[Rfam]
RNA sequence: CUGCUGUUGCCGCGCUGAUGUGCGACGGAGUCCGUGGUAACGGCAGCGAGUUUGAAGACGUCCAUCGCACCGUAUGAGUUAUUCAUGCGGCCCGAACACGGGAGAGAACGCUGAGCGUUACAAC
Numbered sequence: 001c002u003g004c005u006g007u008u009g010c011c012g013c014g015c016u017g018a019u020g021u022g023c024g025a026c027g028g029a030g031u032c033c034g035u036g037g038u039a040a041c042g043g044c045a046g047c048g049a050g051u052u053u054g055a056a057g058a059c060g061u062c063c064a065u066c067g068c069a070c071c072g073u074a075u076g077a078g079u080u081a082u083u084c085a086u087g088c089g090g091c092c093c094g095a096a097c098a099c100g101g102g103a104g105a106g107a108a109c110g111c112u113g114a115g116c117g118u119u120a121c122a123a124c
Stems, first nucleotide, its partner, number of pairs: 001046012070090008